[Rfam]
RNA sequence: GGACAGUCAUCGCCGAGUCCCCCGAAGGCGCGAGCCGGGGGAGCCGGGGACCCGCCUCCAAGGGCCCUUCGCGGUCCGGGAGUUCAGUUCCUGGGGUGAAUCGGCCGCCCUCGCGGGCGUCCGUAGGAGACUUCCUGCUCCGAACCCGUCAGCUAACCCGGUAGGCGAGAGGGAAGGAAGGG
Numbered sequence: 001g002g003a004c005a006g007u008c009a010u011c012g013c014c015g016a017g018u019c020c021c022c023c024g025a026a027g028g029c030g031c032g033a034g035c036c037g038g039g040g041g042a043g044c045c046g047g048g049g050a051c052c053c054g055c056c057u058c059c060a061a062g063g064g065c066c067c068u069u070c071g072c073g074g075u076c077c078g079g080g081a082g083u084u085c086a087g088u089u090c091c092u093g094g095g096g097u098g099a100a101u102c103g104g105c106c107g108c109c110c111u112c113g114c115g116g117g118c119g120u121c122c123g124u125a126g127g128a129g130a131c132u133u134c135c136u137g138c139u140c141c142g143a144a145c146c147c148g149u150c151a152g153c154u155a156a157c158c159c160g161g162u163a164g165g166c167g168a169g170a171g172g173g174a175a176g177g178a179a180g181g182g
Stems, first nucleotide, its partner, number of pairs: 011167004018042007043162006053093002094147003102123003126141004

A member of the RNA family "c-di-AMP riboswitch aptamer (ydaO/yuaA leader)", 182 nucleotides long.
Rfam's curators write: This family represents a conserved RNA structure found upstream of the ydaO and yuaA genes in Bacillus subtilis and related genes in other bacteria.